Alphaproteobacteria transfer-messenger RNA: a 371-nucleotide RNA from Brucella rhizosphaerae. Taxonomically the source falls in Brucella (Bacteria, Pseudomonadati, Pseudomonadota, Brucellaceae). A search with the family's covariance model found it, with a score of 310 bits. Its Rfam clan is "tRNA clan".
RNA sequence: CCUCUUCCAAUCACGCAGAAGGACGCCUAUAUACGGCGUGUCAGCGCAAGCUGACUAUGGUGAUAAAUGGACGAUGUAAUAAACCUAUUGGACCCGGGGGCGGUACCCGGCGCCUCCACCAGAACACAAGAUGCAUCAAGAGCAAGUUGUGCUGUGGCGGGGGCGAAAUAGGAUCGACAAGGGUGUAAAGAUCGCUCUUUUGCUCGGCAUGAUACCACCGUUAUCGGGUCAAUUGAGUAGUUGCAAAUGACAACAAAGCUCAGGGUUACGCUCUCGCUGCCUAAUGGCGGUGCGGGAAACCCACACUAAAGCCCUUAGGGUUAGCACCUUAAGGCGGGGUUCGGAGGCACCUGGCAACAGAAGCCUCCACU
Numbered sequence: 001c002c003u004c005u006u007c008c009a010a011u012c013a014c015g016c017a018g019a020a021g022g023a024c025g026c027c028u029a030u031a032u033a034c035g036g037c038g039u040g041u042c043a044g045c046g047c048a049a050g051c052u053g054a055c056u057a058u059g060g061u062g063a064u065a066a067a068u069g070g071a072c073g074a075u076g077u078a079a080u081a082a083a084c085c086u087a088u089u090g091g092a093c094c095c096g097g098g099g100g101c102g103g104u105a106c107c108c109g110g111c112g113c114c115u116c117c118a119c120c121a122g123a124a125c126a127c128a129a130g131a132u133g134c135a136u137c138a139a140g141a142g143c144a145a146g147u148u149g150u151g152c153u154g155u156g157g158c159g160g161g162g163g164c165g166a167a168a169u170a171g172g173a174u175c176g177a178c179a180a181g182g183g184u185g186u187a188a189a190g191a192u193c194g195c196u197c198u199u200u201u202g203c204u205c206g207g208c209a210u211g212a213u214a215c216c217a218c219c220g221u222u223a224u225c226g227g228g229u230c231a232a233u234u235g236a237g238u239a240g241u242u243g244c245a246a247a248u249g250a251c252a253a254c255a256a257a258g259c260u261c262a263g264g265g266u267u268a269c270g271c272u273c274u275c276g277c278u279g280c281c282u283a284a285u286g287g288c289g290g291u292g293c294g295g296g297a298a299a300c301c302c303a304c305a306c307u308a309a310a311g312c313c314c315u316u317a318g319g320g321u322u323a324g325c326a327c328c329u330u331a332a333g334g335c336g337g338g339g340u341u342c343g344g345a346g347g348c349a350c351c352u353g354g355c356a357a358c359a360g361a362a363g364c365c366u367c368c369a370c371u
Stems, first nucleotide, its partner, number of pairs: 040055005059204005069197002072194004084183003088180003094110005111165007205220003210231003215227002337352004343368006